[Rfam]
RNA sequence: GUGCAUCCAGUAGGAACUGAACCUAUGAAUUUGCCAAUUAUGAGUUGGGCGCAUUAACCAUUAAACCAUAGAUGC
Numbered sequence: 001g002u003g004c005a006u007c008c009a010g011u012a013g014g015a016a017c018u019g020a021a022c023c024u025a026u027g028a029a030u031u032u033g034c035c036a037a038u039u040a041u042g043a044g045u046u047g048g049g050c051g052c053a054u055u056a057a058c059c060a061u062u063a064a065a066c067c068a069u070a071g072a073u074g075c
Base pairs, nucleotide, nucleotide: 003075004074005073006072007071010026011025012024013023014022040069041068042067044066045065046064048062049061051059
Source information
Rfam assigns this 75-nucleotide RNA from Striga hermonthica to the family "Plastid-ycf2 5UTR RNA". The base pairs follow the family's consensus structure, which was predicted with LocARNA. It is annotated as a cis-regulatory element. The literature on the family includes a 2023 paper in Plant Commun by Richter et al., "Retrograde signaling in plants: A critical review focusing on the GUN pathway and beyond". Rfam describes the family as follows. Plastid ycf2 is a non-coding RNA (ncRNA) recognised in plastids. It was found in the prime untranslated region (5UTR) of ycf2 genes, it presents a tRNA-like motif which suggests it can be involved in mRNA maturation, particularly involved in defining the precise 5' end of the transcript.